[Rfam]
RNA sequence: GUGAAGUUGAUCACAAGCAAACAUAUACCCCUUUGUUUGACCGUGAAAAAUUUCUCCCAUCCCCUUUGUUCGUAUUUAAUUGAAAAAGACCUUGCGAGAGCAAGGUCUUUUU
Numbered sequence: 001g002u003g004a005a006g007u008u009g010a011u012c013a014c015a016a017g018c019a020a021a022c023a024u025a026u027a028c029c030c031c032u033u034u035g036u037u038u039g040a041c042c043g044u045g046a047a048a049a050a051u052u053u054c055u056c057c058c059a060u061c062c063c064c065u066u067u068g069u070u071c072g073u074a075u076u077u078a079a080u081u082g083a084a085a086a087a088g089a090c091c092u093u094g095c096g097a098g099a100g101c102a103a104g105g106u107c108u109u110u111u112u
Stems, first nucleotide, its partner, number of pairs: 003054006011046004018039006070082001074080001086109010

A member of the RNA family "RNA Staph. aureus E (RoxS)" from Niallia endozanthoxylica, 112 nucleotides long. About the family: It was shown to be regulated by the presence of nitric oxide (NO). It scores 105 bits against the family's covariance model. The base pairs follow the family's consensus structure, which is taken from published work. NCBI's taxonomy places the organism under Bacteria, Bacillota, Bacilli, Bacillaceae, Niallia.